RNA: L31-Firmicutes ribosomal protein leader
Organism: Lachnospiraceae bacterium A2
RNA sequence: CUUUGGCGCUGUAAUAGGGCCAUGUGGACCCAUGGCAUUGUUCAGGGCAGGAAAGAG
Number, nucleotide and partner (000 for none) at each position: 001c047002u046003u045004u044005g043006g000007c000008g000009c000010u000011g000012u000013a042014a041015u040016a039017g038018g000019g000020c000021c000022a000023u000024g000025u000026g000027g000028a000029c000030c000031c000032a000033u000034g000035g000036c000037a000038u017039u016040g015041u014042u013043c005044a004045g003046g002047g001048c000049a000050g000051g000052a000053a000054a000055g000056a000057g000